A member of the RNA family "Plastid-clpP 5UTR RNA" from Musa balbisiana, 65 nucleotides long. Rfam's curators write: Plastid clpP is a non-coding RNA (ncRNA) recognised in plastids. It was found in the prime untranslated region (5UTR) of a protease complex subunit (clpP) in plastids, suggesting a posible cis-regulatory function. The family's RNA type in Rfam is cis-regulatory element. The base pairs follow the family's consensus structure, which was predicted with LocARNA. It scores 62 bits against the family's covariance model.
RNA sequence: AAUUCUGUUCGUAAGAACAAGAGAAGCAGCUAUUCUAUACCCAUUAAGUACCAAUACGCCUGGGA
Numbered sequence: 001a002a003u004u005c006u007g008u009u010c011g012u013a014a015g016a017a018c019a020a021g022a023g024a025a026g027c028a029g030c031u032a033u034u035c036u037a038u039a040c041c042c043a044u045u046a047a048g049u050a051c052c053a054a055u056a057c058g059c060c061u062g063g064g065a
Base pairs, nucleotide, nucleotide: 003021004020006019007018008017009016010015040064041063042062048057049056050055